23S methyl RNA motif: a 107-nucleotide sequence from Companilactobacillus tucceti. The family's RNA type in Rfam is cis-regulatory element. It scores 68 bits against the family's covariance model. Rfam links the family to the GO term regulation of gene expression. On this family, see Weinberg et al., Nucleic Acids Res 2007: "Identification of 22 candidate structured RNAs in bacteria using the CMfinder comparative genomics pipeline".
RNA sequence: UGGUUAUUUGUUUUUCUCAGAAGUCGUUUUGACAAAAGCAAGUAAAUUGACGGGUUUAACUAACGCAUGUCCUUGCUGUGAGUGUCACCGAGGGUAUGCGUUUUUUU
Numbered sequence: 001u002g003g004u005u006a007u008u009u010g011u012u013u014u015u016c017u018c019a020g021a022a023g024u025c026g027u028u029u030u031g032a033c034a035a036a037a038g039c040a041a042g043u044a045a046a047u048u049g050a051c052g053g054g055u056u057u058a059a060c061u062a063a064c065g066c067a068u069g070u071c072c073u074u075g076c077u078g079u080g081a082g083u084g085u086c087a088c089c090g091a092g093g094g095u096a097u098g099c100g101u102u103u104u105u106u107u
Stems, first nucleotide, its partner, number of pairs: 002047001004045012017032003062102014078088003
Dot-bracket structure: .(.((((((((((((.(((..........))).)))))))))))).)..............((((((((((((((..(((.....))))))))))))))))).....